[Rfam]
A member of the RNA family "DUF805b RNA", 35 nucleotides long.
The sequence is in the family's curated seed alignment.
Clan: DUF805 clan.
It is annotated as a cis-regulatory element.
RNA sequence: AUAGCGGAAGCCGAAAAGCUGUUAUAGAGUAGGCA
Numbered sequence: 001a002u003a004g005c006g007g008a009a010g011c012c013g014a015a016a017a018g019c020u021g022u023u024a025u026a027g028a029g030u031a032g033g034c035a
Stems, first nucleotide, its partner, number of pairs: 002021004010034003